[Rfam]
RNA sequence: UUUGGGAAAUGAUGCUAAACAAUAUCGAUUUAUGUCAUAGGCACCAAAAUGUGCUUUGCUGAUCAAAAUAUUAUUUGCACGUCAGUCUGAUCCUAAA
Number, nucleotide and partner (000 for none) at each position: 001u097002u096003u095004g094005g093006g092007a091008a000009a000010u000011g000012a000013u000014g000015c000016u000017a000018a000019a000020c000021a000022a000023u000024a000025u000026c000027g000028a000029u000030u000031u000032a000033u000034g000035u000036c000037a000038u000039a000040g000041g000042c000043a000044c000045c000046a000047a000048a000049a000050u000051g000052u000053g000054c000055u000056u000057u000058g000059c000060u000061g000062a000063u000064c000065a000066a000067a000068a000069u000070a000071u000072u000073a000074u000075u000076u000077g000078c000079a000080c000081g000082u000083c000084a000085g000086u000087c000088u000089g000090a000091u007092c006093c005094u004095a003096a002097a001